Shown here is a 64-nucleotide RNA sequence from Rhodococcus rhodnii, a member of the family "Actino-pnp RNA".
The source organism's lineage runs through Bacteria, Actinomycetota, Actinomycetes, Nocardiaceae and Rhodococcus rhodnii.
The base pairs follow the family's consensus structure, which is taken from published work.
RNA sequence: GUCGGUCCUCGGUAGUGGCUGCCGCGACGCGACACGCAUCCGGCAGCUUCGAUCGAUGACCGCC
Numbered sequence: 001g002u003c004g005g006u007c008c009u010c011g012g013u014a015g016u017g018g019c020u021g022c023c024g025c026g027a028c029g030c031g032a033c034a035c036g037c038a039u040c041c042g043g044c045a046g047c048u049u050c051g052a053u054c055g056a057u058g059a060c061c062g063c064c
Stems, first nucleotide, its partner, number of pairs: 001064001003062005009056005017048008026040002029037002